[Rfam]
RNA: TPP riboswitch aptamer (THI element)
Organism: Mycoplasmopsis mustelae
RNA sequence: AUAUGUGGACAGAGGUACUUGUAGUACGUUACUACAGGUUGAGAAAUACUCUUAUUAGCCGAUCUAGGUAAUGCUAGCGUGGCGAGUCUUUCUUGUAUAUUU
Numbered sequence: 001a002u003a004u005g006u007g008g009a010c011a012g013a014g015g016u017a018c019u020u021g022u023a024g025u026a027c028g029u030u031a032c033u034a035c036a037g038g039u040u041g042a043g044a045a046a047u048a049c050u051c052u053u054a055u056u057a058g059c060c061g062a063u064c065u066a067g068g069u070a071a072u073g074c075u076a077g078c079g080u081g082g083c084g085a086g087u088c089u090u091u092c093u094u095g096u097a098u099a100u101u102u
Stems, first nucleotide, its partner, number of pairs: 007089004011052004016046001017039009058083004064077004